[Rfam]
RNA sequence: CCGCAAGGUCGCUAGGGUUCCGGUCCCGCUUGGGAUGUCUGGUCCGAGAGCGACCGGUUCCGCCGCUGGCGGGGCUCCACGGAGGGACAAAAGCCCGGGAGGU
Numbered sequence: 001c002c003g004c005a006a007g008g009u010c011g012c013u014a015g016g017g018u019u020c021c022g023g024u025c026c027c028g029c030u031u032g033g034g035a036u037g038u039c040u041g042g043u044c045c046g047a048g049a050g051c052g053a054c055c056g057g058u059u060c061c062g063c064c065g066c067u068g069g070c071g072g073g074g075c076u077c078c079a080c081g082g083a084g085g086g087a088c089a090a091a092a093g094c095c096c097g098g099g100a101g102g103u
Stems, first nucleotide, its partner, number of pairs: 007055006015045002020042002022039001023036005056076008078098001080101001084096003

The family of this 103-nucleotide RNA from Tepidimonas taiwanensis is "Guanidine-I riboswitch aptamer". Rfam describes the family as follows. This family represents a conserved RNA structure found upstream of the ykkC and yxkD genes in Bacillus subtilis and related genes in other bacteria. Lineage of the source: Bacteria > Pseudomonadati > Betaproteobacteria > Burkholderiales > Tepidimonas.